RNA: bZIP non canonical Hac1/Xbp1 intron
Organism: Botrytis cinerea
RNA sequence: AGUUCUUUCGGUAUGACACAACAUUCUGCUGCAAUGUUGUGCGACCUGCAGUGUCAAUCGAAAGUACA
Number, nucleotide and partner (000 for none) at each position: 001a000002g067003u066004u000005c064006u063007u000008u061009c060010g059011g058012u057013a000014u000015g000016a000017c000018a000019c000020a038021a037022c036023a035024u034025u033026c000027u000028g000029c000030u000031g000032c000033a025034a024035u023036g022037u021038u020039g000040u000041g000042c000043g055044a054045c053046c000047u000048g000049c000050a000051g000052u000053g045054u044055c043056a000057a012058u011059c010060g009061a008062a000063a006064g005065u000066a003067c002068a000